[Rfam]
RNA sequence: UCACAAAUUCAAGGCCAAAGCUGAAGAGUUUAUGGUGCAGUCUGUCAGAUUCCAACAAAAUCUGCAAAUUCUGCU
Numbered sequence: 001u002c003a004c005a006a007a008u009u010c011a012a013g014g015c016c017a018a019a020g021c022u023g024a025a026g027a028g029u030u031u032a033u034g035g036u037g038c039a040g041u042c043u044g045u046c047a048g049a050u051u052c053c054a055a056c057a058a059a060a061u062c063u064g065c066a067a068a069u070u071c072u073g074c075u
Stems, first nucleotide, its partner, number of pairs: 013042003019075003023071003026038001028036001046064006
Dot-bracket structure: ............[[[...(((.((((.(.......).).]]]...((((((.......))))))....))).)))
Shown here is a 75-nucleotide sequence from Alligator sinensis, a member of the family "Mammalian CPEB3 ribozyme". The family's consensus secondary structure is taken from published work. Lineage of the source: Eukaryota > Opisthokonta > Vertebrata > Tetrapoda > Alligator.